[Rfam]
RNA sequence: UUUUAAACCUGAUUGAAAUGGAAAGCCCGCAAACGAGGUACGAGUGCGGACUUGUAAUGGAAAGCAGGGUCGAAU
Numbered sequence: 001u002u003u004u005a006a007a008c009c010u011g012a013u014u015g016a017a018a019u020g021g022a023a024a025g026c027c028c029g030c031a032a033a034c035g036a037g038g039u040a041c042g043a044g045u046g047c048g049g050a051c052u053u054g055u056a057a058u059g060g061a062a063a064g065c066a067g068g069g070u071c072g073a074a075u
Base pairs, nucleotide, nucleotide: 009067010066011065013063014062018058019057023053024052025051027049028048029047030046031045034042035041

Flavo-1 RNA: a 75-nucleotide RNA sequence from Hufsiella arboris.
Taxonomically the source falls in Hufsiella (Bacteria, Bacteroidota, Sphingobacteriales, Sphingobacteriaceae).
The family has 201 seed sequences and 7,497 matches in Rfam 15.1.